[Rfam]
Plant small nucleolar RNA U3: a 217-nucleotide RNA from Oryza sativa.
Its family is annotated with RNA processing and nucleolus in the Gene Ontology.
Rfam classes the family as a C/D-box small nucleolar RNA.
Rfam's curators write: Small nucleolar RNAs (snoRNAs) are involved in the processing and modification of rRNA in the nucleolus.
RNA sequence: ACGACCUUACUUGAACGGGAUCUGUUCUAUAGGCUCGUACCGUUGCAUCCUUGACUAAUAAGGAGGCAAGCACUUAAGCUUGGUUGAUGACGCAUGACCUGUGGGCCAGAGCGUGAUUAACGGCCGGAUCACUGGCUGAUUUGAUCCCACGGCUGUAGAGGAUCGUUUCUUGCCGGGCCUCGCCUGGCCAGGAUGGCUCUCAGGUUCUCUGACAGGC
Numbered sequence: 001a002c003g004a005c006c007u008u009a010c011u012u013g014a015a016c017g018g019g020a021u022c023u024g025u026u027c028u029a030u031a032g033g034c035u036c037g038u039a040c041c042g043u044u045g046c047a048u049c050c051u052u053g054a055c056u057a058a059u060a061a062g063g064a065g066g067c068a069a070g071c072a073c074u075u076a077a078g079c080u081u082g083g084u085u086g087a088u089g090a091c092g093c094a095u096g097a098c099c100u101g102u103g104g105g106c107c108a109g110a111g112c113g114u115g116a117u118u119a120a121c122g123g124c125c126g127g128a129u130c131a132c133u134g135g136c137u138g139a140u141u142u143g144a145u146c147c148c149a150c151g152g153c154u155g156u157a158g159a160g161g162a163u164c165g166u167u168u169c170u171u172g173c174c175g176g177g178c179c180u181c182g183c184c185u186g187g188c189c190a191g192g193a194u195g196g197c198u199c200u201c202a203g204g205u206u207c208u209c210u211g212a213c214a215g216g217c
Stems, first nucleotide, its partner, number of pairs: 001038002003035001005033003013027006043069004048064006078217005097205005103199006110167004120156006126147006169191002172188007